[Rfam]
RNA sequence: GGGGAUGAUCGGUUUCGACAGCGGAUGUCGAAGCAGGGGAAGCGUGUCGAGGAAGCGGCCAUGAUCUCGUAAACCACAGGCCGAAAAAAAUAAUCGCCAAUUCUAAGAGCGGUUCUUCCGCGCAGCAGUACUCUCUCGCCGCCUGAUUCCAGGUAGCGACGAGUCUGCUCCGCACUAAUGGGAGUGUCAGCCCGGGAGUGUUCCCGACCCGGAUCCUGGCAUCAGCUAGGGGACUAAACCUUGAUCCUGGUCACGGGGUGAAGAGGGAAAUCUAACAGUGACUGGGCCCGUCGGCGACUUGUUCGCGUGAUUGCCGGGGCCGAGAAAAGCACAGCGAACUGCACACGGAGAAGCCCUGAUUCCUCACCGUUGGACGCGGGUUCGAUUCCCGCCAUCUCCACAA
Numbered sequence: 001g002g003g004g005a006u007g008a009u010c011g012g013u014u015u016c017g018a019c020a021g022c023g024g025a026u027g028u029c030g031a032a033g034c035a036g037g038g039g040a041a042g043c044g045u046g047u048c049g050a051g052g053a054a055g056c057g058g059c060c061a062u063g064a065u066c067u068c069g070u071a072a073a074c075c076a077c078a079g080g081c082c083g084a085a086a087a088a089a090a091u092a093a094u095c096g097c098c099a100a101u102u103c104u105a106a107g108a109g110c111g112g113u114u115c116u117u118c119c120g121c122g123c124a125g126c127a128g129u130a131c132u133c134u135c136u137c138g139c140c141g142c143c144u145g146a147u148u149c150c151a152g153g154u155a156g157c158g159a160c161g162a163g164u165c166u167g168c169u170c171c172g173c174a175c176u177a178a179u180g181g182g183a184g185u186g187u188c189a190g191c192c193c194g195g196g197a198g199u200g201u202u203c204c205c206g207a208c209c210c211g212g213a214u215c216c217u218g219g220c221a222u223c224a225g226c227u228a229g230g231g232g233a234c235u236a237a238a239c240c241u242u243g244a245u246c247c248u249g250g251u252c253a254c255g256g257g258g259u260g261a262a263g264a265g266g267g268a269a270a271u272c273u274a275a276c277a278g279u280g281a282c283u284g285g286g287c288c289c290g291u292c293g294g295c296g297a298c299u300u301g302u303u304c305g306c307g308u309g310a311u312u313g314c315c316g317g318g319g320c321c322g323a324g325a326a327a328a329g330c331a332c333a334g335c336g337a338a339c340u341g342c343a344c345a346c347g348g349a350g351a352a353g354c355c356c357u358g359a360u361u362c363c364u365c366a367c368c369g370u371u372g373g374a375c376g377c378g379g380g381u382u383c384g385a386u387u388c389c390c391g392c393c394a395u396c397u398c399c400a401c402a403a
Stems, first nucleotide, its partner, number of pairs: 001399007019372006027364001030362003034358005043347005048069005056083005135163004140158003185221006192212003196209001200234006239266004249283006285321005292316003297312001299310001301339004376392005
RNA: transfer-messenger RNA